RNA sequence: UUGCGCAAGCACUGUUUAUUGACGCAAUCUUCGCAAUCAUCUGUCGGGCGCAGGCGGGUAUCUUUAUCAACAGAAUCACCGCCUGGACAACAGUCCACAGCAGCUCGCCCAAUCAGGCCUGCUGCGGCCGCCACCUCAGCAGGGUUGAGCCGGCCUCCAGGCUGCACACUGUCCACAAGACGGCGUGAGGUGAGCCAACGUCAAAAGCGUUGAGCCAGGACGAAGUUCUCAAGGGGUGGCCGACGGGUCACCCC
Numbered sequence: 001u002u003g004c005g006c007a008a009g010c011a012c013u014g015u016u017u018a019u020u021g022a023c024g025c026a027a028u029c030u031u032c033g034c035a036a037u038c039a040u041c042u043g044u045c046g047g048g049c050g051c052a053g054g055c056g057g058g059u060a061u062c063u064u065u066a067u068c069a070a071c072a073g074a075a076u077c078a079c080c081g082c083c084u085g086g087a088c089a090a091c092a093g094u095c096c097a098c099a100g101c102a103g104c105u106c107g108c109c110c111a112a113u114c115a116g117g118c119c120u121g122c123u124g125c126g127g128c129c130g131c132c133a134c135c136u137c138a139g140c141a142g143g144g145u146u147g148a149g150c151c152g153g154c155c156u157c158c159a160g161g162c163u164g165c166a167c168a169c170u171g172u173c174c175a176c177a178a179g180a181c182g183g184c185g186u187g188a189g190g191u192g193a194g195c196c197a198a199c200g201u202c203a204a205a206a207g208c209g210u211u212g213a214g215c216c217a218g219g220a221c222g223a224a225g226u227u228c229u230c231a232a233g234g235g236g237u238g239g240c241c242g243a244c245g246g247g248u249c250a251c252c253c254c
Stems, first nucleotide, its partner, number of pairs: 002011003043055003076193005081162004085096004100125005107118003126155005133146001135144003165187003169183005194215002196212006233254004238249004
Rfam assigns this 254-nucleotide RNA sequence from Pseudomonas fluorescens to the family "Pseudomonas sRNA P24". NCBI's taxonomy places the organism under Bacteria, Gammaproteobacteria, Pseudomonadales, Pseudomonadaceae, Pseudomonas fluorescens. By type it is a non-coding RNA gene.